[Rfam]
RNA sequence: CUCACGUUCGUCUUCUUACUUUCGGGUCUACACUCAUGGCGCGGUAACCAAGCGGUUACCGAUUGUCCACCAAAUUGACCUGAGGAAAGUCCCCGAACUCUUCAGCAGAAAGUGCAAGCAACCUGAAAGGGUUGAUCGAUGCAUUGCCACUCUUCCGUUUACAUGGAAAUGAAGGGAGGUCACUACACUUCCAUGAUCCAUAAGGAAGGGCGAACAAUGUAAUCGACUGGUUCUAGAUAUAAAGUAUGUUAAGAGAGAAAUGUUACAUUUCUUAACUCAAUGGGGCUUAAAGACGUAUGAGA
Numbered sequence: 001c002u003c004a005c006g007u008u009c010g011u012c013u014u015c016u017u018a019c020u021u022u023c024g025g026g027u028c029u030a031c032a033c034u035c036a037u038g039g040c041g042c043g044g045u046a047a048c049c050a051a052g053c054g055g056u057u058a059c060c061g062a063u064u065g066u067c068c069a070c071c072a073a074a075u076u077g078a079c080c081u082g083a084g085g086a087a088a089g090u091c092c093c094c095g096a097a098c099u100c101u102u103c104a105g106c107a108g109a110a111a112g113u114g115c116a117a118g119c120a121a122c123c124u125g126a127a128a129g130g131g132u133u134g135a136u137c138g139a140u141g142c143a144u145u146g147c148c149a150c151u152c153u154u155c156c157g158u159u160u161a162c163a164u165g166g167a168a169a170u171g172a173a174g175g176g177a178g179g180u181c182a183c184u185a186c187a188c189u190u191c192c193a194u195g196a197u198c199c200a201u202a203a204g205g206a207a208g209g210g211c212g213a214a215c216a217a218u219g220u221a222a223u224c225g226a227c228u229g230g231u232u233c234u235a236g237a238u239a240u241a242a243a244g245u246a247u248g249u250u251a252a253g254a255g256a257g258a259a260a261u262g263u264u265a266c267a268u269u270u271c272u273u274a275a276c277u278c279a280a281u282g283g284g285g286c287u288u289a290a291a292g293a294c295g296u297a298u299g300a301g302a
Stems, first nucleotide, its partner, number of pairs: 002302002005299003009295003014254005022083007042061007087288003091285004105115003119134006136226003144213005153206003164200004174183001176181001256272006
The record is a 302-nucleotide RNA sequence from Sipha flava, which matches "RNase MRP" in Rfam. The family has 66 seed sequences and 3,510 matches in Rfam 15.1. Lineage of the source: Eukaryota > Arthropoda > Allotriocarida > Sternorrhyncha > Sipha. It scores 79 bits against the family's covariance model. The family's consensus secondary structure is taken from published work.